This 142-nucleotide RNA sequence from Halopseudomonas yangmingensis belongs to the Rfam family "PrrF RNA". The match comes from Rfam's covariance-model search (100 bits). Rfam links the family to the GO term sRNA-mediated gene silencing. Lineage of the source: Bacteria > Pseudomonadota > Gammaproteobacteria > Pseudomonadales > Halopseudomonas. From the family's description: PrrF RNA is a small RNA involved in iron homeostasis and is found exclusively in Pseudomonas species. Pairs were carried over by alignment from the consensus structure, which is taken from published work. Rfam classes the family as a small RNA.

[Rfam]
RNA sequence: UUGACUAUUAAACGAUAAUCAUUAUUAUUAGCAACAAGCCAUCGCGAGAUGGCCCGGAUAACGGAUUGUCGCGAGACGAACGGUUAUCUCCUCAUCAGGCUAAUCACGGAUUUAUGCCCGCUUACAAGCGGGCUUUUUUUUG
Number, nucleotide and partner (000 for none) at each position: 001u000002u000003g000004a000005c000006u000007a000008u000009u000010a000011a000012a000013c000014g000015a000016u000017a000018a000019u000020c000021a000022u000023u000024a000025u000026u000027a000028u000029u000030a000031g000032c000033a000034a000035c056036a000037a000038g053039c052040c051041a050042u049043c048044g000045c000046g000047a000048g043049a042050u041051g040052g039053c038054c000055c000056g035057g000058a000059u000060a000061a000062c082063g081064g000065a000066u000067u000068g000069u000070c078071g000072c000073g000074a000075g000076a000077c000078g070079a000080a000081c063082g062083g000084u000085u000086a000087u000088c000089u000090c099091c098092u097093c000094a000095u000096c000097a092098g091099g090100c000101u000102a000103a000104u000105c000106a000107c000108g000109g000110a000111u000112u000113u000114a000115u000116g133117c132118c131119c130120g129121c128122u127123u000124a000125c000126a000127a122128g121129c120130g119131g118132g117133c116134u000135u000136u000137u000138u000139u000140u000141u000142g000